[Rfam]
RNA sequence: AAAUAUCUUCAGGGGUGGGUGAAAUUCCCUACCGGCGGUGACAGUCCGCGAGCGCAAGCUGAUUUGGUGCAAUUCCAAAACCGACAGUACAGUCUGGAUGAGAGAAGAUGCUG
Numbered sequence: 001a002a003a004u005a006u007c008u009u010c011a012g013g014g015g016u017g018g019g020u021g022a023a024a025u026u027c028c029c030u031a032c033c034g035g036c037g038g039u040g041a042c043a044g045u046c047c048g049c050g051a052g053c054g055c056a057a058g059c060u061g062a063u064u065u066g067g068u069g070c071a072a073u074u075c076c077a078a079a080a081c082c083g084a085c086a087g088u089a090c091a092g093u094c095u096g097g098a099u100g101a102g103a104g105a106a107g108a109u110g111c112u113g
Stems, first nucleotide, its partner, number of pairs: 004110007017029003031093002033083002035049004044081002052059002063079005085096003
FMN riboswitch aptamer (RFN element): a 113-nucleotide sequence from Peptostreptococcaceae bacterium oral taxon 113. NCBI's taxonomy places the organism under Bacteria, Bacillati, Bacillota, Peptostreptococcales, Peptostreptococcaceae bacterium oral taxon 113. A search with the family's covariance model found it, with a score of 115 bits. From the family's description: The RFN element is a highly conserved domain that is found frequently in the 5'-untranslated regions of prokaryotic mRNAs that encode for flavin mononucleotide (FMN) biosynthesis and transport proteins. This element is a metabolite-dependent riboswitch that directly binds FMN in the absence of proteins. In Bacillus subtilis, the riboswitch most likely controls gene expression by causing premature transcription termination within the 5' untranslated region of the ribDEAHT operon and precluding access to the ribosome-binding site of ypaA mRNA.The FMN riboswitch structure, reported in present an FMN-bound six-stem junction, adopts a butterfly-like scaffold, stapled together by opposingly directed but nearly identically folded peripheral domains.